[Rfam]
RNA sequence: AUCCGGGUACUGCCCGGUGAACAGGGUGGGCCGGCUCGGCACACA
Numbered sequence: 001a002u003c004c005g006g007g008u009a010c011u012g013c014c015c016g017g018u019g020a021a022c023a024g025g026g027u028g029g030g031c032c033g034g035c036u037c038g039g040c041a042c043a044c045a
Base pairs, nucleotide, nucleotide: 012032014030015029017027018026
Rfam assigns this 45-nucleotide RNA from Mycolicibacterium cosmeticum to the family "Mycobacterium sRNA Ms_AS-5". The match comes from Rfam's covariance-model search (57 bits). Taxonomically the source falls in Mycobacterium (subgen. Mycolicibacterium) (Bacteria, Actinomycetes, Mycobacteriaceae, Mycobacterium).